[Rfam]
RNA sequence: CCCUUAUCUUUUAAAAGUUUCAAGUUGGUCCCUUAUUUUUAUUUUAGGUUUCAAGUUGGUCCCUUCCGUCAAUUUUUUAACUAUUUCCGUUAAGUUUUGACACGUGGCAAACUAAUUUGGACACGUGGCACACUUAGAUAGAUGACAAGUGUCCAAAUUUAACGGUAACAUUACAAAAAUUGACGGAAGGGACCAACUUGAAACCUAAAAAAAAGAUAAGGGACCAAUUUGAAACUUUUAAAAGAUAAGGGA
Numbered sequence: 001c002c003c004u005u006a007u008c009u010u011u012u013a014a015a016a017g018u019u020u021c022a023a024g025u026u027g028g029u030c031c032c033u034u035a036u037u038u039u040u041a042u043u044u045u046a047g048g049u050u051u052c053a054a055g056u057u058g059g060u061c062c063c064u065u066c067c068g069u070c071a072a073u074u075u076u077u078u079a080a081c082u083a084u085u086u087c088c089g090u091u092a093a094g095u096u097u098u099g100a101c102a103c104g105u106g107g108c109a110a111a112c113u114a115a116u117u118u119g120g121a122c123a124c125g126u127g128g129c130a131c132a133c134u135u136a137g138a139u140a141g142a143u144g145a146c147a148a149g150u151g152u153c154c155a156a157a158u159u160u161a162a163c164g165g166u167a168a169c170a171u172u173a174c175a176a177a178a179a180u181u182g183a184c185g186g187a188a189g190g191g192a193c194c195a196a197c198u199u200g201a202a203a204c205c206u207a208a209a210a211a212a213a214a215g216a217u218a219a220g221g222g223a224c225c226a227a228u229u230u231g232a233a234a235c236u237u238u239u240a241a242a243a244g245a246u247a248a249g250g251g252a
Stems, first nucleotide, its partner, number of pairs: 002250007023229003027225003031221010042210002045207003
Dot-bracket structure: .(((((((..............(((.(((.((((((((((.((.(((.............................................................................................................................................................))).)).)))))))))).))).)))..............)))))))..
RNA: MIR2655 microRNA precursor family
Organism: Trifolium subterraneum